The family of this 102-nucleotide RNA from Clostridium isatidis is "TPP riboswitch aptamer (THI element)".

RNA sequence: AUUAUGUGCUAGGGGUGCUUCGGCUGAGAAAUGAUUUUUCAAUCAUUAACCCUUAUACCUGAUAUAGAUAAUACUAUCGUAGGGAAGCCAUAAAUAAGUUAA
Numbered sequence: 001a002u003u004a005u006g007u008g009c010u011a012g013g014g015g016u017g018c019u020u021c022g023g024c025u026g027a028g029a030a031a032u033g034a035u036u037u038u039u040c041a042a043u044c045a046u047u048a049a050c051c052c053u054u055a056u057a058c059c060u061g062a063u064a065u066a067g068a069u070a071a072u073a074c075u076a077u078c079g080u081a082g083g084g085a086a087g088c089c090a091u092a093a094a095u096a097a098g099u100u101a102a
Base pairs, nucleotide, nucleotide: 008088009087010086011053012052013051014050017024018023031046032045033044034043035042058083059082060081061080064077065076066075067074

Description
The source organism's lineage runs through Bacteria, Bacillota, Clostridia, Clostridiaceae and Clostridium. The base pairs follow the family's consensus structure, which is taken from published work. It scores 66 bits against the family's covariance model.